[Rfam]
RNA sequence: CCGUUCAACUCGUCGCUCCAGAGAGAGCGACUACGGGAG
Numbered sequence: 001c002c003g004u005u006c007a008a009c010u011c012g013u014c015g016c017u018c019c020a021g022a023g024a025g026a027g028c029g030a031c032u033a034c035g036g037g038a039g
Base pairs, nucleotide, nucleotide: 001036002035003034004033012031013030014029015028016027017026018025
Rfam assigns this 39-nucleotide RNA from Kumtagia ephedrae to the family "THF-II riboswitch (folE RNA)".
The base pairs follow the family's consensus structure, which is taken from published work.
For this family Rfam cites "Structural insights into translation regulation by the THF-II riboswitch" (Xu et al., Nucleic Acids Res, 2023).
It scores 60 bits against the family's covariance model.